[Rfam]
RNA sequence: UCGCAUUUGUUGGAUUUUAUAGAGAGAAAAUUUAUGUGUUUUCUUUCAUUUUUGACCAACUGAGUGCGUACAGUGAAAGCCAGUAAGUCUUUAGGGAAUUACUGGCAGCGGCCAGACAACCGUAGAGAUGCAUAUCCACAGAUUACGGGUUUAUUUCCACCCCGUUGUCUACUGAUUUCAUCUCACAUUC
Numbered sequence: 001u002c003g004c005a006u007u008u009g010u011u012g013g014a015u016u017u018u019a020u021a022g023a024g025a026g027a028a029a030a031u032u033u034a035u036g037u038g039u040u041u042u043c044u045u046u047c048a049u050u051u052u053u054g055a056c057c058a059a060c061u062g063a064g065u066g067c068g069u070a071c072a073g074u075g076a077a078a079g080c081c082a083g084u085a086a087g088u089c090u091u092u093a094g095g096g097a098a099u100u101a102c103u104g105g106c107a108g109c110g111g112c113c114a115g116a117c118a119a120c121c122g123u124a125g126a127g128a129u130g131c132a133u134a135u136c137c138a139c140a141g142a143u144u145a146c147g148g149g150u151u152u153a154u155u156u157c158c159a160c161c162c163c164g165u166u167g168u169c170u171a172c173u174g175a176u177u178u179c180a181u182c183u184c185a186c187a188u189u190c
Base pairs, nucleotide, nucleotide: 002068003067004066005065006064009060010059011058015054019050022047023046024045025044026043027042028041029040030039031038125184126183127182128181129180130179132177145165146164147162148161149160